[Rfam]
RNA sequence: GCAUGGCUUUGGAUUUAUGGCAGGCCUGUCCCCCGGGUCUCUCCUGGUGCCCAUGCCAGAGCAGACUGGCCUGGAACCAUCGCCUGCCUCUGCUCCUCUGCUGCGGGCGCUGAAGCGGGUUGCAAGGUG
Numbered sequence: 001g002c003a004u005g006g007c008u009u010u011g012g013a014u015u016u017a018u019g020g021c022a023g024g025c026c027u028g029u030c031c032c033c034c035g036g037g038u039c040u041c042u043c044c045u046g047g048u049g050c051c052c053a054u055g056c057c058a059g060a061g062c063a064g065a066c067u068g069g070c071c072u073g074g075a076a077c078c079a080u081c082g083c084c085u086g087c088c089u090c091u092g093c094u095c096c097u098c099u100g101c102u103g104c105g106g107g108c109g110c111u112g113a114a115g116c117g118g119g120u121u122g123c124a125a126g127g128u129g
Stems, first nucleotide, its partner, number of pairs: 001056004005051003015047003019043002022040003025036002067122006078112002083107002085103002087100001

Small nucleolar RNA SNORA42/SNORA80 family: a 129-nucleotide RNA sequence from Myotis lucifugus. The organism belongs to Myotis, within Eukaryota. The family's consensus secondary structure was predicted with RNAalifold. About the family: The members of this family belong to the H/ACA class of snoRNAs that guide the sites of modification of uridines to pseudouridines. Human ACA42 (SNORA42) was cloned from HeLa cells by immunoprecipitation with anti-GAR1 antibody. Its is predicted to guide the pseudouridylation of residues U109 and U572 of 18S rRNA. ACA42 shares the same host gene with ACA26, ACA46, ACA50. Rfam 15.1 lists 1,535 matches to the family in 183 species. Gene Ontology terms of the family: RNA processing and nucleolus.